[Rfam]
RNA sequence: GUGUGUUUGUGUGUGGAUGGUGUUCAGCACCAAGGACAGGUGUGCUAGUGUGUGGCUGGUGUUAAGGACCAGAGAGAGGUGUGUUUGCGU
Numbered sequence: 001g002u003g004u005g006u007u008u009g010u011g012u013g014u015g016g017a018u019g020g021u022g023u024u025c026a027g028c029a030c031c032a033a034g035g036a037c038a039g040g041u042g043u044g045c046u047a048g049u050g051u052g053u054g055g056c057u058g059g060u061g062u063u064a065a066g067g068a069c070c071a072g073a074g075a076g077a078g079g080u081g082u083g084u085u086u087g088c089g090u
Stems, first nucleotide, its partner, number of pairs: 004081005010075001018071004023066002026063007034051001036049002039046002
This 90-nucleotide RNA from Branchiostoma floridae belongs to the Rfam family "mir-2060 microRNA precursor family". The family's consensus secondary structure was predicted with RNAalifold. The source organism's lineage runs through Eukaryota, Deuterostomia, Amphioxiformes, Branchiostomatidae and Branchiostoma. The match comes from Rfam's covariance-model search (64 bits). Gene Ontology terms of the family: miRNA-mediated post-transcriptional gene silencing and RISC complex.